Overview:
The family of this 204-nucleotide RNA from Dankookia rubra is "permuted transfer-messenger RNA". The base pairs follow the family's consensus structure, which is taken from published work. NCBI's taxonomy places the organism under Bacteria, Pseudomonadati, Pseudomonadota, Roseomonadaceae, Dankookia. Bacterial tmRNA, also known as 10Sa RNA or SsrA, is named for its dual tRNA and mRNA-like properties. Its role is to liberate the mRNA from a stalled ribosome. To accomplish this part of the tmRNA is used as a reading frame that ends in a translation stop signal.
RNA sequence: GGUGAUAAACACGGCUCGGGAUAAGCGUUGCGGACCCGGGGGCAGUGCCCGGCGCCUCCACCAUUCCCCCAUAUGCGGGGGCUUCGGGGGCGAAACAGGCUCGACGCGCGUGGUAAUGGGGUCGUCUUUGCCCGGCAUGGUUCCGCCGUCAUCGGGCCAUUGAUAAGUGCGAACGAUAACGACGCACUCGCUGUUGCUGCGUAA
Numbered sequence: 001g002g003u004g005a006u007a008a009a010c011a012c013g014g015c016u017c018g019g020g021a022u023a024a025g026c027g028u029u030g031c032g033g034a035c036c037c038g039g040g041g042g043c044a045g046u047g048c049c050c051g052g053c054g055c056c057u058c059c060a061c062c063a064u065u066c067c068c069c070c071a072u073a074u075g076c077g078g079g080g081g082c083u084u085c086g087g088g089g090g091c092g093a094a095a096c097a098g099g100c101u102c103g104a105c106g107c108g109c110g111u112g113g114u115a116a117u118g119g120g121g122u123c124g125u126c127u128u129u130g131c132c133c134g135g136c137a138u139g140g141u142u143c144c145g146c147c148g149u150c151a152u153c154g155g156g157c158c159a160u161u162g163a164u165a166a167g168u169g170c171g172a173a174c175g176a177u178a179a180c181g182a183c184g185c186a187c188u189c190g191c192u193g194u195u196g197c198u199g200c201g202u203a204a
Base pairs, nucleotide, nucleotide: 001132002131003130004129005128014122015121016120017119026110027109028108030107031106032105036052037051038050039049040048053092054091055090056089057088058087059086133148134147135146136145